The record is a 582-nucleotide part of an RNA from Haloarcula marismortui, which matches "Archaeal large subunit ribosomal RNA" in Rfam.
Pairs were carried over by alignment from the consensus structure, which is taken from published work.
The organism belongs to Haloarcula, within Archaea.
RNA sequence: CACCCAGGGGGAAGCGAAGACCCUAUGGAGCUUUACUGCAGGCUGUCGCUGAGACGUGGUCGCCGAUGUGCAGCAUAGGUAGGAGUCGUUACAGAGGUACCCGCGCUAGCGGGCCACCCAGACAACAGUGAAAUACUACCCGUCGGUGACUGCGACUCUCACUCCGGGAGGAGGACACCGAUAGCCGGGCAGUUUGACUGGGGCGGUACGCGCUCGAAAAGAUAUCGAGCGCGCCCUAUGGUCAUCUCAGCCGGGACAGAGACCCGGCGAAGAGUGCAAGAGCAAAAGAUGACUUGACAGUGUUCUUCCCAACGAGGAACGCUGACGCGAAAGCGUGGUCUAGCGAACCAAUUAGCCUGCUUGAUGCGGGCAAUUGAUGACAGAAAAGCUACCCUAGGGAUAACAGAGUCGUCACUCGCAAGAGCACAUAUCGACCGAGUGGCUUGCUACCUCGAUGUCGGUUCCCUCCAUCCUGCCCGUGCAGAAGCGGGCAAGGGUGAGGUUGUUCGCCUAUUAAAGGAGGUCGUGAGCUGGGUUUAGACCGUCGUGAGACAGGUCGGCUGCUAUCUACUGGGUGUGUAA
Numbered sequence: 001c002a003c004c005c006a007g008g009g010g011g012a013a014g015c016g017a018a019g020a021c022c023c024u025a026u027g028g029a030g031c032u033u034u035a036c037u038g039c040a041g042g043c044u045g046u047c048g049c050u051g052a053g054a055c056g057u058g059g060u061c062g063c064c065g066a067u068g069u070g071c072a073g074c075a076u077a078g079g080u081a082g083g084a085g086u087c088g089u090u091a092c093a094g095a096g097g098u099a100c101c102c103g104c105g106c107u108a109g110c111g112g113g114c115c116a117c118c119c120a121g122a123c124a125a126c127a128g129u130g131a132a133a134u135a136c137u138a139c140c141c142g143u144c145g146g147u148g149a150c151u152g153c154g155a156c157u158c159u160c161a162c163u164c165c166g167g168g169a170g171g172a173g174g175a176c177a178c179c180g181a182u183a184g185c186c187g188g189g190c191a192g193u194u195u196g197a198c199u200g201g202g203g204c205g206g207u208a209c210g211c212g213c214u215c216g217a218a219a220a221g222a223u224a225u226c227g228a229g230c231g232c233g234c235c236c237u238a239u240g241g242u243c244a245u246c247u248c249a250g251c252c253g254g255g256a257c258a259g260a261g262a263c264c265c266g267g268c269g270a271a272g273a274g275u276g277c278a279a280g281a282g283c284a285a286a287a288g289a290u291g292a293c294u295u296g297a298c299a300g301u302g303u304u305c306u307u308c309c310c311a312a313c314g315a316g317g318a319a320c321g322c323u324g325a326c327g328c329g330a331a332a333g334c335g336u337g338g339u340c341u342a343g344c345g346a347a348c349c350a351a352u353u354a355g356c357c358u359g360c361u362u363g364a365u366g367c368g369g370g371c372a373a374u375u376g377a378u379g380a381c382a383g384a385a386a387a388g389c390u391a392c393c394c395u396a397g398g399g400a401u402a403a404c405a406g407a408g409u410c411g412u413c414a415c416u417c418g419c420a421a422g423a424g425c426a427c428a429u430a431u432c433g434a435c436c437g438a439g440u441g442g443c444u445u446g447c448u449a450c451c452u453c454g455a456u457g458u459c460g461g462u463u464c465c466c467u468c469c470a471u472c473c474u475g476c477c478c479g480u481g482c483a484g485a486a487g488c489g490g491g492c493a494a495g496g497g498u499g500a501g502g503u504u505g506u507u508c509g510c511c512u513a514u515u516a517a518a519g520g521a522g523g524u525c526g527u528g529a530g531c532u533g534g535g536u537u538u539a540g541a542c543c544g545u546c547g548u549g550a551g552a553c554a555g556g557u558c559g560g561c562u563g564c565u566a567u568c569u570a571c572u573g574g575g576u577g578u579g580u581a582a
Stems, first nucleotide, its partner, number of pairs: 001577007010569003014564002022398004027394002029390005035193004042185007051158003055154014078140005085123003100113005162173004196209001197207003210232006235338002241293006247273002250268006274283002298324009326335001328333001349376005355371005407448003411445001412442007422432002459534001460532004464526001465523005472497002476491005500512004540558004544553003